[Rfam]
RNA sequence: UUCUUAUCAAGAGAGGUGGAGGGACUGGCCCGAAGAAACCUCAGCAACCGCCAUGCAGGCAAGGUGCUAAUUCCAGCAAGCUUUUAGUGACUUGGAAGAUAAGAA
Dot-bracket structure: ((((((((....(((((...(((.[[[[)))......)))))((((.(((((.....)))..))))))...(]]]]((((.(......).))))..)))))))))
RNA: SAM riboswitch aptamer (S box leader)